[Rfam]
RNA sequence: AUACUAACCUUGCGUAGGGUGUACCGUGAUCACGAAGGCGGUUGCCCCGGGCGGACUCCGGCCAUUGCACUGCGGCCGGGAGAAGUCCGUCUGUGACUAUCCCAAAUAGGGGUACGUCGUACGUGUAAUUUUUGGUAGUUGGACUUGCGUUCUGCGCGGUCCUC
Numbered sequence: 001a002u003a004c005u006a007a008c009c010u011u012g013c014g015u016a017g018g019g020u021g022u023a024c025c026g027u028g029a030u031c032a033c034g035a036a037g038g039c040g041g042u043u044g045c046c047c048c049g050g051g052c053g054g055a056c057u058c059c060g061g062c063c064a065u066u067g068c069a070c071u072g073c074g075g076c077c078g079g080g081a082g083a084a085g086u087c088c089g090u091c092u093g094u095g096a097c098u099a100u101c102c103c104a105a106a107u108a109g110g111g112g113u114a115c116g117u118c119g120u121a122c123g124u125g126u127a128a129u130u131u132u133u134g135g136u137a138g139u140u141g142g143a144c145u146u147g148c149g150u151u152c153u154g155c156g157c158g159g160u161c162c163u164c
Base pairs, nucleotide, nucleotide: 012124013123014122015121017047018046019045020044021043023042024041025040026039027038049092050091051090052089054088056085057084059078060077061076062075063074094119095118096117097116098114099113101111102110141162142161143160144159146158147157148156149155
Overview: Shown here is a 164-nucleotide RNA sequence from Helicoverpa armigera, a member of the family "U1 spliceosomal RNA". U1 is a small nuclear RNA (snRNA) component of the spliceosome (involved in pre-mRNA splicing). Its 5' end forms complementary base pairs with the 5' splice junction, thus defining the 5' donor site of an intron. Lineage of the source: Eukaryota > Hexapoda > Amphiesmenoptera > Obtectomera > Helicoverpa. Rfam classes the family as a spliceosomal small nuclear RNA.